[Rfam]
A member of the RNA family "NiCo (Nickel/Cobalt) riboswitch aptamer", 92 nucleotides long. On this family, see Furukawa et al., Mol Cell 2015: "Bacterial riboswitches cooperatively bind Ni(2+) or Co(2+) ions and control expression of heavy metal transporters". Pairs were carried over by alignment from the consensus structure, which is taken from published work. It is one of the family's seed sequences.
RNA sequence: ACAGUACAAACUGAGCAGGCGAUGAACCGGAAGGUUCAUGGGGCUGGGCCGCAACCGCGGCAGCAGAUGGAAAGCACAUCUGUGGGACAGUA
Numbered sequence: 001a002c003a004g005u006a007c008a009a010a011c012u013g014a015g016c017a018g019g020c021g022a023u024g025a026a027c028c029g030g031a032a033g034g035u036u037c038a039u040g041g042g043g044c045u046g047g048g049c050c051g052c053a054a055c056c057g058c059g060g061c062a063g064c065a066g067a068u069g070g071a072a073a074g075c076a077c078a079u080c081u082g083u084g085g086g087a088c089a090g091u092a
Base pairs, nucleotide, nucleotide: 010091011090012089013088016086018045019044020043022039023038024037025036026035027034048061049060050059051058052057063083064082065081066080067079068078